This 211-nucleotide RNA from Budvicia aquatica belongs to the Rfam family "GlmZ RNA activator of glmS mRNA".
About the family: This RNA was discovered in E. coli during a large scale screen. The sraJ gene was expressed in early logarithmic phase, but its level decreased with cell growth. Specific cleavage products of this RNA were found.
A reference for the family is Islam et al. (2023), "Structure of a bacterial ribonucleoprotein complex central to the control of cell envelope biogenesis", EMBO J.
A search with the family's covariance model found it, with a score of 127 bits.

RNA sequence: GUAGAAUGCUCAUUCACCUCUUUAUGAUAGUUGAUUUAAGGAUCGCUUCAUAAGCCUAUCGAAUGAUGCAGAGCCGAGUAAUGGUGUCUAUCGUCUAGCUUAUUGAUGACAUUGUCAUCAAACAUCAGACAUAACGUUGAGUGAGACACCACCAUGUUGUCCUUUGACCUGAUUUUUUCUCACACUUGCCCCUCUAGGCAAGUGUUUUUUU
Numbered sequence: 001g002u003a004g005a006a007u008g009c010u011c012a013u014u015c016a017c018c019u020c021u022u023u024a025u026g027a028u029a030g031u032u033g034a035u036u037u038a039a040g041g042a043u044c045g046c047u048u049c050a051u052a053a054g055c056c057u058a059u060c061g062a063a064u065g066a067u068g069c070a071g072a073g074c075c076g077a078g079u080a081a082u083g084g085u086g087u088c089u090a091u092c093g094u095c096u097a098g099c100u101u102a103u104u105g106a107u108g109a110c111a112u113u114g115u116c117a118u119c120a121a122a123c124a125u126c127a128g129a130c131a132u133a134a135c136g137u138u139g140a141g142u143g144a145g146a147c148a149c150c151a152c153c154a155u156g157u158u159g160u161c162c163u164u165u166g167a168c169c170u171g172a173u174u175u176u177u178u179c180u181c182a183c184a185c186u187u188g189c190c191c192c193u194c195u196a197g198g199c200a201a202g203u204g205u206u207u208u209u210u211u
Base pairs, nucleotide, nucleotide: 001074002073007070008069009068010066011065012064013063015061019052028045030043031042032041083150084149085148086147087146088145089144093130094129095128096127105119106118107117108116159168160167161166182205183204184203185202186201187200188199189198190197